[Rfam]
RNA sequence: UCCUUUGCUGAAUAUGGCGAUGUGUGCCCAGGACUCCCAUUCCCGGUUCCUCUGGAUCUGGGUCAAUGGUGAGGCCUGCGGCAGUUCGACGAACCAAAAGGAGUGCCGAGGAUGCCAUCAAAAUCACCCGAUGAGGCGGAUUAUCUGGUCGACACAUUGCAGAAGUAACAUUUGCCCACCCUUUCACGGUCUUGUAGCUCUACGUGAGCUCGUCCGCUGGGUGCAGCAGAGACGCCAUAUUCCUAAACGUCCUCGAGCCCGUCGGGCUGUGAUGAGUGGGGUAAAACCAUGGCUUGCCUACAUAC
Numbered sequence: 001u002c003c004u005u006u007g008c009u010g011a012a013u014a015u016g017g018c019g020a021u022g023u024g025u026g027c028c029c030a031g032g033a034c035u036c037c038c039a040u041u042c043c044c045g046g047u048u049c050c051u052c053u054g055g056a057u058c059u060g061g062g063u064c065a066a067u068g069g070u071g072a073g074g075c076c077u078g079c080g081g082c083a084g085u086u087c088g089a090c091g092a093a094c095c096a097a098a099a100g101g102a103g104u105g106c107c108g109a110g111g112a113u114g115c116c117a118u119c120a121a122a123a124u125c126a127c128c129c130g131a132u133g134a135g136g137c138g139g140a141u142u143a144u145c146u147g148g149u150c151g152a153c154a155c156a157u158u159g160c161a162g163a164a165g166u167a168a169c170a171u172u173u174g175c176c177c178a179c180c181c182u183u184u185c186a187c188g189g190u191c192u193u194g195u196a197g198c199u200c201u202a203c204g205u206g207a208g209c210u211c212g213u214c215c216g217c218u219g220g221g222u223g224c225a226g227c228a229g230a231g232a233c234g235c236c237a238u239a240u241u242c243c244u245a246a247a248c249g250u251c252c253u254c255g256a257g258c259c260c261g262u263c264g265g266g267c268u269g270u271g272a273u274g275a276g277u278g279g280g281g282u283a284a285a286a287c288c289a290u291g292g293c294u295u296g297c298c299u300a301c302a303u304a305c
Base pairs, nucleotide, nucleotide: 018159019158020157021156022155023154024153025152026082027081028080029078030077031076034073035072036071037069038068039067040066041065043062044060045059046058048056049055050054090151091150092149094147172226173225174224178222179221180220181219188215189214191212194211196210197209198208199207200206231298233296234293235292236291237290238289247282248281250279251278254274255273257267258266259265260264
RNA: A. fumigatus sRNA Afu_309